A member of the RNA family "Plastid-ycf2 5UTR RNA" from Chara braunii, 75 nucleotides long. Plastid ycf2 is a non-coding RNA (ncRNA) recognised in plastids. It was found in the prime untranslated region (5UTR) of ycf2 genes, it presents a tRNA-like motif which suggests it can be involved in mRNA maturation, particularly involved in defining the precise 5' end of the transcript. Pairs were carried over by alignment from the consensus structure, which was predicted with LocARNA. It scores 72 bits against the family's covariance model. Lineage of the source: Eukaryota > Viridiplantae > Charophyceae > Charales > Chara.

[Rfam]
RNA sequence: AUGCAUCCAACAAGAUUCGAACCUGCGAAUUCUUCAAUUAUGAGUUGGACGCUUUAACCGCUCAGUCAUGGAUAC
Numbered sequence: 001a002u003g004c005a006u007c008c009a010a011c012a013a014g015a016u017u018c019g020a021a022c023c024u025g026c027g028a029a030u031u032c033u034u035c036a037a038u039u040a041u042g043a044g045u046u047g048g049a050c051g052c053u054u055u056a057a058c059c060g061c062u063c064a065g066u067c068a069u070g071g072a073u074a075c
Stems, first nucleotide, its partner, number of pairs: 003075001005073004011025002014022001040069003044066005050060002